[Rfam]
RNA: freshwater-2 RNA
RNA sequence: UGUGCCGCAAGGCGGACUUAUGCUGUACCCACAGCGUAGCAGCUAGAACCUGCAUCGGACUUCUAACGAAGGAGAAAACAAAUG
Number, nucleotide and partner (000 for none) at each position: 001u016002g000003u014004g013005c012006c011007g000008c000009a000010a000011g006012g005013c004014g003015g000016a001017c000018u000019u038020a037021u036022g035023c034024u033025g032026u000027a000028c000029c000030c000031a000032c025033a024034g023035c022036g021037u020038a019039g053040c052041a051042g050043c000044u000045a000046g000047a000048a000049c000050c042051u041052g040053c039054a000055u000056c000057g000058g000059a000060c000061u000062u000063c000064u000065a000066a000067c000068g000069a000070a000071g000072g000073a000074g000075a000076a000077a000078a000079c000080a000081a000082a000083u000084g000